[Rfam]
RNA sequence: AACGGGGUCCGGGCCCCUCUGGCGAGCAGGUCGCUGCUCGCGAUGUCGGACACCUUCU
Numbered sequence: 001a002a003c004g005g006g007g008u009c010c011g012g013g014c015c016c017c018u019c020u021g022g023c024g025a026g027c028a029g030g031u032c033g034c035u036g037c038u039c040g041c042g043a044u045g046u047c048g049g050a051c052a053c054c055u056u057c058u
Base pairs, nucleotide, nucleotide: 007051008050009049010048011047012046022041023040024039025038026037027036028035029034
Source information:
terC RNA: a 58-nucleotide RNA from Microvirga sp. BSC39. By type it is a cis-regulatory element. The match comes from Rfam's covariance-model search (62 bits).